[Rfam]
RNA sequence: GGAGGUUGGUGAUGGACGAACUACUCGCCAACCGGGUCAGGUCUGGAAAGAAGCAGCCCUAACGAGCUUUGGUACGGGUCAUCGUGCCGACCUCCUAC
Numbered sequence: 001g002g003a004g005g006u007u008g009g010u011g012a013u014g015g016a017c018g019a020a021c022u023a024c025u026c027g028c029c030a031a032c033c034g035g036g037u038c039a040g041g042u043c044u045g046g047a048a049a050g051a052a053g054c055a056g057c058c059c060u061a062a063c064g065a066g067c068u069u070u071g072g073u074a075c076g077g078g079u080c081a082u083c084g085u086g087c088c089g090a091c092c093u094c095c096u097a098c
Base pairs, nucleotide, nucleotide: 004092005091006090007089008088009085010084011083012082013081014080017076018075020073021072022071024066025065026064027063034059035058036057037056042051043050044049
Rfam assigns this 98-nucleotide RNA sequence from Bartonella bovis to the family "Bacterial small signal recognition particle RNA".
Rfam classes the family as a non-coding RNA gene.
Rfam describes the family as follows. The signal recognition particle (SRP) is a universally conserved ribonucleoprotein involved in the co-translational targeting of proteins to membranes.
The source organism's lineage runs through Bacteria, Alphaproteobacteria, Hyphomicrobiales, Bartonella and Bartonella bovis.